[Rfam]
RNA: mir-1180 microRNA precursor family
Organism: Propithecus coquereli
RNA sequence: GCUGCCGGACCCACCCAGCCGGGAAUAGUGCACCGUCUUCUUUCCGGCUUGAGUGGGUGUGUCGGAGG
Numbered sequence: 001g002c003u004g005c006c007g008g009a010c011c012c013a014c015c016c017a018g019c020c021g022g023g024a025a026u027a028g029u030g031c032a033c034c035g036u037c038u039u040c041u042u043u044c045c046g047g048c049u050u051g052a053g054u055g056g057g058u059g060u061g062u063c064g065g066a067g068g
Stems, first nucleotide, its partner, number of pairs: 002065003006061002009058006016051002018048008027039002